This 139-nucleotide RNA sequence from Ricinus communis belongs to the Rfam family "small nucleolar RNA snoR137". By type it is an H/ACA-box small nucleolar RNA. On this family, see Chen and Wu, Nucleic Acids Res 2009: "Mining small RNA sequencing data: a new approach to identify small nucleolar RNAs in Arabidopsis". Lineage of the source: Eukaryota > Streptophyta > Streptophytina > Euphyllophyta > Ricinus.
RNA sequence: GUUGCUUCUUCUGGUGACUCUUCCUAAUCAAUGGAAGAAAUUCAUGUUUCCGAAGCAUAAAUUUAAAUUUUUAUUGCCAGUAUUAAACAGCACAGUGAAUUCUCUUUCUUCUCUGUGUUACCUGUCUCCUGGUACACCU
Numbered sequence: 001g002u003u004g005c006u007u008c009u010u011c012u013g014g015u016g017a018c019u020c021u022u023c024c025u026a027a028u029c030a031a032u033g034g035a036a037g038a039a040a041u042u043c044a045u046g047u048u049u050c051c052g053a054a055g056c057a058u059a060a061a062u063u064u065a066a067a068u069u070u071u072u073a074u075u076g077c078c079a080g081u082a083u084u085a086a087a088c089a090g091c092a093c094a095g096u097g098a099a100u101u102c103u104c105u106u107u108c109u110u111c112u113c114u115g116u117g118u119u120a121c122c123u124g125u126c127u128c129c130u131g132g133u134a135c136a137c138c139u
Stems, first nucleotide, its partner, number of pairs: 003057006015044003019038005076133005082127001089119003093115003097111001